Alphaproteobacterial ar15: a 115-nucleotide sequence from Mesorhizobium sp. LSHC420B00.

[Rfam]
RNA sequence: AUCUCCUGAGCGCGUUCUCCUCCCAUUAGCGCUCUCGAGUGUUCCCCUCUGGAGGUUAGCCUUAACAGGCACUUCCAAUCAAACUCAGCCGGGUCUUCAUUGAUCCGGCUUUUUU
Number, nucleotide and partner (000 for none) at each position: 001a040002u000003c039004u038005c037006c000007u000008g034009a033010g032011c031012g030013c029014g000015u000016u000017c000018u000019c000020c000021u000022c000023c000024c000025a000026u000027u000028a000029g013030c012031g011032c010033u009034c008035u000036c000037g005038a004039g003040u001041g000042u000043u000044c000045c000046c000047c000048u000049c000050u077051g076052g075053a074054g073055g072056u071057u000058a000059g000060c000061c000062u000063u000064a000065a000066c000067a000068g000069g000070c000071a056072c055073u054074u053075c052076c051077a050078a000079u000080c000081a000082a000083a000084c000085u000086c000087a110088g109089c108090c107091g106092g105093g000094u103095c102096u000097u000098c000099a000100u000101u000102g095103a094104u000105c092106c091107g090108g089109c088110u087111u000112u000113u000114u000115u000
Its family is annotated with protein binding in the Gene Ontology. NCBI's taxonomy places the organism under Bacteria, Pseudomonadota, Hyphomicrobiales, Phyllobacteriaceae, Mesorhizobium. The pairing is the family consensus, mapped onto this sequence. The family's RNA type in Rfam is small RNA.